[Rfam]
RNA sequence: GGUCAUGCUUUUCCACAGCUUUCUUGAACUUUCUCUGAAUUCAUAAUCUCAUGCUGCCUGAUAUAUAAUUGUCUAGCACAUCAUGAAAGCUCAAGAAAGCUGUGGGAGAACAUGAUGG
Numbered sequence: 001g002g003u004c005a006u007g008c009u010u011u012u013c014c015a016c017a018g019c020u021u022u023c024u025u026g027a028a029c030u031u032u033c034u035c036u037g038a039a040u041u042c043a044u045a046a047u048c049u050c051a052u053g054c055u056g057c058c059u060g061a062u063a064u065a066u067a068a069u070u071g072u073c074u075a076g077c078a079c080a081u082c083a084u085g086a087a088a089g090c091u092c093a094a095g096a097a098a099g100c101u102g103u104g105g106g107a108g109a110a111c112a113u114g115a116u117g118g
Stems, first nucleotide, its partner, number of pairs: 003115005013105003017101006024094004029089005
Annotation: This 118-nucleotide RNA from Hibiscus syriacus belongs to the Rfam family "MIR396 microRNA precursor family". The match comes from Rfam's covariance-model search (91 bits). For this family Rfam cites "Computational identification of plant microRNAs and their targets, including a stress-induced miRNA" (Jones-Rhoades and Bartel, Mol Cell, 2004). The source organism's lineage runs through Eukaryota, Streptophytina, Gunneridae, Malvoideae and Hibiscus. Rfam 15.1 lists 744 matches to the family in 207 species. Rfam links the family to the GO terms RISC complex and miRNA-mediated post-transcriptional gene silencing.